[Rfam]
RNA: eL15-Euryarchaeota ribosomal protein leader
RNA sequence: GCGGGGGAAACCCGCGGGAUGUUCCGCUAAGCGGAGAACCAUAAA
Dot-bracket structure: (((((.....)))))((.....((((.....))))...)).....